The family of this 70-nucleotide sequence from Callorhinchus milii is "mir-29 microRNA precursor family".
Rfam links the family to the GO terms gene silencing by miRNA and RISC complex.
From the family's description: This family represents the microRNA (miRNA) precursors mir-29.
It scores 66 bits against the family's covariance model.
RNA sequence: AGGAGCUGGUUUCCUAUGGUGGUUUAGAUGUAACUCAGCUGUGUCUAGCACCAUUUGAAAUCAGUGUUCU
Numbered sequence: 001a002g003g004a005g006c007u008g009g010u011u012u013c014c015u016a017u018g019g020u021g022g023u024u025u026a027g028a029u030g031u032a033a034c035u036c037a038g039c040u041g042u043g044u045c046u047a048g049c050a051c052c053a054u055u056u057g058a059a060a061u062c063a064g065u066g067u068u069c070u
Base pairs, nucleotide, nucleotide: 001070002069003068004067005065006064007063008062009061010060011059012058013057016054017053018052019051020050021049025047026046027045028044

The family has 168 seed sequences and 3,328 matches in Rfam 15.1.